Background:
The record is a 68-nucleotide RNA sequence from Brenneria goodwinii, which matches "MicA sRNA" in Rfam. Lineage of the source: Bacteria > Pseudomonadati > Enterobacterales > Pectobacteriaceae > Brenneria. A search with the family's covariance model found it, with a score of 62 bits. Rfam classes the family as a small RNA. Rfam links the family to the GO term mRNA binding.
RNA sequence: GAAAGACGCGCAUUUAUCAUCAUCCCUAUUAGAUAUGUACAUUUGGCCACAUUUACAUGUGGCCUUUU
Numbered sequence: 001g002a003a004a005g006a007c008g009c010g011c012a013u014u015u016a017u018c019a020u021c022a023u024c025c026c027u028a029u030u031a032g033a034u035a036u037g038u039a040c041a042u043u044u045g046g047c048c049a050c051a052u053u054u055a056c057a058u059g060u061g062g063c064c065u066u067u068u
Stems, first nucleotide, its partner, number of pairs: 021037003026032002045064007